[Rfam]
The family of this 682-nucleotide RNA from Rhizopogon vesiculosus is "Nuclear RNase P". The family's consensus secondary structure is taken from published work.

RNA sequence: CCAGUUCGAAGGCCACGAAUGCUCAUCUCGUACAGGUUGCUUCGUGCAUCCACAUUUCUGAGUGGGCUAAGGUCUGAGUAUUUCAAUCCCCCUCGAUUGGCUCUAGCGGAGUCCUGCUGUAAUCAGCUGCGCGAUGUACCAGAAAAGCAGCUUCAUUUCAUAUCCCAAAGAUCCUGUUUCGGUGGAGGAGGACGAGAAUCAAAGCUUUGAAAGCGUCGCGGGGAUUAGGCAAACUUGCAUCCAUCAAUUAGCAGUCAGUUGUCGCUAUCGCGCAUGCGUCUAUCAAGAAGACGCUGAAGGGACAGUCACUAUCCAUCCCGAUGUGACCGUGACCCCCCAGGCUGCUUGGUCCCUUGCUGUGGUAGGCCAAUGCUUACACAUCUAGUAGUCUAGAUGUUGGAUCCACUUCUGUUGCACAUUUGGACUGCAGUCUUCGAGGUAUGAUGCAUGGCACUUGUGUCGUGCUUACCUCUUCGGGCGAGCGUGCGUUCGCGCUCGCCGGCUUCCGGCGUAACCGUUGAGCUUCAUGACCUAUCACUUAUGGCAGGAGAUUAGCCGUCUCCUUGCGUAUGAGGCAUGCGACUGAUUGUAUGCGAUGGUACUAGUUUGUCCUUGAGUUCACUUCGUGGCUUGCGUGUCCUUCGUGGAUCGUGAAACUCGAUUCAGACUACUCUUGGACUGG
Numbered sequence: 001c002c003a004g005u006u007c008g009a010a011g012g013c014c015a016c017g018a019a020u021g022c023u024c025a026u027c028u029c030g031u032a033c034a035g036g037u038u039g040c041u042u043c044g045u046g047c048a049u050c051c052a053c054a055u056u057u058c059u060g061a062g063u064g065g066g067c068u069a070a071g072g073u074c075u076g077a078g079u080a081u082u083u084c085a086a087u088c089c090c091c092c093u094c095g096a097u098u099g100g101c102u103c104u105a106g107c108g109g110a111g112u113c114c115u116g117c118u119g120u121a122a123u124c125a126g127c128u129g130c131g132c133g134a135u136g137u138a139c140c141a142g143a144a145a146a147g148c149a150g151c152u153u154c155a156u157u158u159c160a161u162a163u164c165c166c167a168a169a170g171a172u173c174c175u176g177u178u179u180c181g182g183u184g185g186a187g188g189a190g191g192a193c194g195a196g197a198a199u200c201a202a203a204g205c206u207u208u209g210a211a212a213g214c215g216u217c218g219c220g221g222g223g224a225u226u227a228g229g230c231a232a233a234c235u236u237g238c239a240u241c242c243a244u245c246a247a248u249u250a251g252c253a254g255u256c257a258g259u260u261g262u263c264g265c266u267a268u269c270g271c272g273c274a275u276g277c278g279u280c281u282a283u284c285a286a287g288a289a290g291a292c293g294c295u296g297a298a299g300g301g302a303c304a305g306u307c308a309c310u311a312u313c314c315a316u317c318c319c320g321a322u323g324u325g326a327c328c329g330u331g332a333c334c335c336c337c338c339a340g341g342c343u344g345c346u347u348g349g350u351c352c353c354u355u356g357c358u359g360u361g362g363u364a365g366g367c368c369a370a371u372g373c374u375u376a377c378a379c380a381u382c383u384a385g386u387a388g389u390c391u392a393g394a395u396g397u398u399g400g401a402u403c404c405a406c407u408u409c410u411g412u413u414g415c416a417c418a419u420u421u422g423g424a425c426u427g428c429a430g431u432c433u434u435c436g437a438g439g440u441a442u443g444a445u446g447c448a449u450g451g452c453a454c455u456u457g458u459g460u461c462g463u464g465c466u467u468a469c470c471u472c473u474u475c476g477g478g479c480g481a482g483c484g485u486g487c488g489u490u491c492g493c494g495c496u497c498g499c500c501g502g503c504u505u506c507c508g509g510c511g512u513a514a515c516c517g518u519u520g521a522g523c524u525u526c527a528u529g530a531c532c533u534a535u536c537a538c539u540u541a542u543g544g545c546a547g548g549a550g551a552u553u554a555g556c557c558g559u560c561u562c563c564u565u566g567c568g569u570a571u572g573a574g575g576c577a578u579g580c581g582a583c584u585g586a587u588u589g590u591a592u593g594c595g596a597u598g599g600u601a602c603u604a605g606u607u608u609g610u611c612c613u614u615g616a617g618u619u620c621a622c623u624u625c626g627u628g629g630c631u632u633g634c635g636u637g638u639c640c641u642u643c644g645u646g647g648a649u650c651g652u653g654a655a656a657c658u659c660g661a662u663u664c665a666g667a668c669u670a671c672u673c674u675u676g677g678a679c680u681g682g
Stems, first nucleotide, its partner, number of pairs: 001682004007676003012630007020064005035051002038048003074666005089223004099113005114129001116127004131219007150205003631654005

Overview: By type it is a ribozyme. The organism belongs to Rhizopogon, within Eukaryota.